RNA sequence: AAUGGGAGAAUGACAAAUCAGAUUUUUCCUCUUCAUUUUCAAUUUUUUUCUCUUGAAAAAAAUCAAAUCCAAUUAAAAAUGGUAGAAAUUAGAAGGAAAAAUAUGAUUUAUCAUUCUCCCAUU
Number, nucleotide and partner (000 for none) at each position: 001a123002a122003u121004g120005g119006g118007a117008g116009a115010a114011u113012g112013a111014c000015a109016a108017a107018u106019c105020a104021g000022a102023u101024u100025u099026u098027u097028c000029c095030u094031c000032u092033u091034c000035a089036u088037u087038u086039u085040c000041a083042a000043u000044u000045u079046u078047u077048u076049u000050c000051u000052c000053u000054u000055g000056a000057a000058a000059a000060a000061a000062a000063u000064c000065a000066a000067a000068u000069c000070c000071a000072a000073u000074u000075a000076a048077a047078a046079a045080u000081g000082g000083u041084a000085g039086a038087a037088a036089u035090u000091a033092g032093a000094a030095g029096g000097a027098a026099a025100a024101a023102u022103a000104u020105g019106a018107u017108u016109u015110a000111u013112c012113a011114u010115u009116c008117u007118c006119c005120c004121a003122u002123u001